[Rfam]
RNA sequence: AUACCAAAAGCUAAUUUUGGGGAAAGGUUUUCUUCAAUAACCUUUACCAACUUAGGCUAUUUGGGAAAAUAAUUUGACCACAUACUCCACAAUGGGCUAUACCAUUUAAUAUAGUUCAUUACUAAUUUUGUGGCCUACAUU
Numbered sequence: 001a002u003a004c005c006a007a008a009a010g011c012u013a014a015u016u017u018u019g020g021g022g023a024a025a026g027g028u029u030u031u032c033u034u035c036a037a038u039a040a041c042c043u044u045u046a047c048c049a050a051c052u053u054a055g056g057c058u059a060u061u062u063g064g065g066a067a068a069a070u071a072a073u074u075u076g077a078c079c080a081c082a083u084a085c086u087c088c089a090c091a092a093u094g095g096g097c098u099a100u101a102c103c104a105u106u107u108a109a110u111a112u113a114g115u116u117c118a119u120u121a122c123u124a125a126u127u128u129u130g131u132g133g134c135c136u137a138c139a140u141u
Base pairs, nucleotide, nucleotide: 004064005063006062007061008060012059013058015056016055017054019051022048025045026042027041028040029039076135078133079132080131081130082129091120092119093118094117095116096115097114098113099112100111101110
Shown here is a 141-nucleotide RNA from Dipodomys ordii, a member of the family "Small nucleolar RNA SNORA4". The family is grouped with related families in Rfam's "SNORA4 clan". The family's consensus secondary structure was predicted with PFOLD. About the family: ACA4 is a member of the H/ACA class of snoRNA that guide the sites of modification of uridines to pseudouridines. Gene Ontology terms of the family: RNA processing and nucleolus. Lineage of the source: Eukaryota > Craniata > Boreoeutheria > Dipodomyinae > Dipodomys. By type it is an H/ACA-box small nucleolar RNA.